[Rfam]
Shown here is a 75-nucleotide RNA sequence from Myotis brandtii, a member of the family "mir-9223 microRNA precursor family".
Rfam 15.1 lists 14,641 matches to the family in 28 species.
Lineage of the source: Eukaryota > Opisthokonta > Euteleostomi > Theria > Myotis.
The match comes from Rfam's covariance-model search (59 bits).
The family's consensus secondary structure was predicted with RNAalifold.
Its family is annotated with miRNA-mediated post-transcriptional gene silencing and RISC complex in the Gene Ontology.
RNA sequence: GGUGGUUCUCAGGUGAUGAGCUCCGGAAUAGGCCUCCCUCCUCUCUGGUUCCGGGUGCAUCAUCCGAAAACCACA
Numbered sequence: 001g002g003u004g005g006u007u008c009u010c011a012g013g014u015g016a017u018g019a020g021c022u023c024c025g026g027a028a029u030a031g032g033c034c035u036c037c038c039u040c041c042u043c044u045c046u047g048g049u050u051c052c053g054g055g056u057g058c059a060u061c062a063u064c065c066g067a068a069a070a071c072c073a074c075a
Base pairs, nucleotide, nucleotide: 002074003073005071006070007069009067010066012064013063014062015061016060017059020056021055022054023053025052026051027050028049029048031046032045